A member of the RNA family "Plastid-ccsA-ndhD-1 3UTR RNA" from Vitis rotundifolia, 57 nucleotides long. Pairs were carried over by alignment from the consensus structure, which was predicted with LocARNA. A reference for the family is Richter et al. (2023), "Retrograde signaling in plants: A critical review focusing on the GUN pathway and beyond", Plant Commun. The family is grouped with related families in Rfam's "Plastid-ccsA_ndhD 3UTR RNA clan". Rfam 15.1 lists 1,322 matches to the family in 557 species. A search with the family's covariance model found it, with a score of 58 bits. From the family's description: Plastid-ccsA-ndhD-1 is a non-coding RNA (ncRNA) recognised in plastids. It was found in the three prime untranslated region (3UTR) of ccsA and ndhD genes, its 3UTR location suggests a role in transcript maturation.
RNA sequence: AAGCUGGGGAGAACCAUUUGAAUCACUGCAUUACUUGAUUCAAAUGGUUAUUACAAA
Numbered sequence: 001a002a003g004c005u006g007g008g009g010a011g012a013a014c015c016a017u018u019u020g021a022a023u024c025a026c027u028g029c030a031u032u033a034c035u036u037g038a039u040u041c042a043a044a045u046g047g048u049u050a051u052u053a054c055a056a057a
Stems, first nucleotide, its partner, number of pairs: 007054001009052002012049014